RNA sequence: CUUAUGAACAAUAAUAAUUAUUUUUUCAACAUCCCCAAAUCCAGCACAGUGCGCUGGAUUUGGGGAGGUUGAAAAAAUAAAUU
Numbered sequence: 001c002u003u004a005u006g007a008a009c010a011a012u013a014a015u016a017a018u019u020a021u022u023u024u025u026u027c028a029a030c031a032u033c034c035c036c037a038a039a040u041c042c043a044g045c046a047c048a049g050u051g052c053g054c055u056g057g058a059u060u061u062g063g064g065g066a067g068g069u070u071g072a073a074a075a076a077a078u079a080a081a082u083u
Stems, first nucleotide, its partner, number of pairs: 016083004020078004025073006035064002037061009
The family of this 83-nucleotide sequence from Oryzias latipes is "Insect-specific Flavivirus 3' UTR cis-acting replication element (CRE)". Rfam links the family to the GO term viral RNA genome replication. A reference for the family is Zeng et al. (1998), "Identification of specific nucleotide sequences within the conserved 3'-SL in the dengue type 2 virus genome required for replication", J Virol. Flavi_ISFV_CRE is a Insect specific Flavivirus family. NCBI's taxonomy places the organism under Eukaryota, Eumetazoa, Craniata, Actinopterygii, Oryzias. It is annotated as a cis-regulatory element.